RNA sequence: GGAUGAAUAUGAUGAAAGUAAUAGAAGGUAUUGAUGAAAUUUCUUCAUUUGAUUUAUAACAGCCUUUGCUACGUUCUUUCUGAUUCGUUC
Number, nucleotide and partner (000 for none) at each position: 001g000002g000003a000004u087005g086006a085007a084008u000009a000010u000011g000012a000013u000014g000015a000016a000017a000018g000019u000020a000021a000022u000023a000024g000025a000026a000027g000028g000029u000030a000031u000032u000033g000034a000035u000036g000037a000038a000039a000040u000041u000042u000043c000044u000045u000046c000047a000048u000049u000050u000051g000052a000053u000054u000055u000056a000057u000058a000059a000060c000061a000062g000063c000064c000065u000066u000067u000068g000069c000070u000071a000072c000073g000074u000075u000076c000077u000078u000079u000080c000081u000082g000083a000084u007085u006086c005087g004088u000089u000090c000
The family of this 90-nucleotide RNA sequence from Coffea canephora is "Small nucleolar RNA R32/R81/Z41". Its family is annotated with RNA processing and nucleolus in the Gene Ontology. It is annotated as a C/D-box small nucleolar RNA. On this family, see Barneche et al., J Mol Biol 2001: "Identification of 66 box C/D snoRNAs in Arabidopsis thaliana: extensive gene duplications generated multiple isoforms predicting new ribosomal RNA 2'-O-methylation sites".